The record is a 75-nucleotide sequence from Halicephalobus sp. NKZ332, which matches "mir-86 microRNA precursor family" in Rfam. The family has 9 seed sequences and 60 matches in Rfam 15.1. The literature on the family includes a 2001 paper in Science by Lau et al., "An abundant class of tiny RNAs with probable regulatory roles in Caenorhabditis elegans". Pairs were carried over by alignment from the consensus structure, which was predicted with RNAalifold. Taxonomically the source falls in Halicephalobus (Eukaryota, Opisthokonta, Tylenchina, Panagrolaimidae). Gene Ontology terms of the family: RISC complex and miRNA-mediated post-transcriptional gene silencing.
[Rfam]
RNA sequence: UGACCGGUUAAGUGAAUGCUUUGCCACAGUCUUAGAAAACUGUUAAGCUGGGCUUGGAUUCGCUUAGACUGGAGC
Numbered sequence: 001u002g003a004c005c006g007g008u009u010a011a012g013u014g015a016a017u018g019c020u021u022u023g024c025c026a027c028a029g030u031c032u033u034a035g036a037a038a039a040c041u042g043u044u045a046a047g048c049u050g051g052g053c054u055u056g057g058a059u060u061c062g063c064u065u066a067g068a069c070u071g072g073a074g075c
Stems, first nucleotide, its partner, number of pairs: 004072003009066009019057002023053003027050003